The family of this 90-nucleotide sequence from Keratinibaculum paraultunense is "c-di-GMP-I riboswitch aptamer". The source organism's lineage runs through Bacteria, Bacillati, Bacillota, Tissierellales and Keratinibaculum. Its family is annotated with cyclic-di-GMP binding in the Gene Ontology.
[Rfam]
RNA sequence: AAAUAUUGAGGGCAAACCUAUCGAAAGAUAGGGACGCAAAGCUAGAGUCUAAAGUUACUAUCUAGUAAUCAUGACAGUUCAGCUGCAUAA
Numbered sequence: 001a002a003a004u005a006u007u008g009a010g011g012g013c014a015a016a017c018c019u020a021u022c023g024a025a026a027g028a029u030a031g032g033g034a035c036g037c038a039a040a041g042c043u044a045g046a047g048u049c050u051a052a053a054g055u056u057a058c059u060a061u062c063u064a065g066u067a068a069u070c071a072u073g074a075c076a077g078u079u080c081a082g083c084u085g086c087a088u089a090a
Stems, first nucleotide, its partner, number of pairs: 012037002017032006040084004045080002047075003054069006
Dot-bracket structure: ...........((...((((((....))))))...))..((((.(((((....((((((....))))))...)))...))))))......